[Rfam]
RNA: Selenocysteine insertion sequence 4
RNA sequence: GGCACCUGUACACGCUGCGGUGCAGCGAUGACCAAAGC
Numbered sequence: 001g002g003c004a005c006c007u008g009u010a011c012a013c014g015c016u017g018c019g020g021u022g023c024a025g026c027g028a029u030g031a032c033c034a035a036a037g038c
Stems, first nucleotide, its partner, number of pairs: 006030001013027006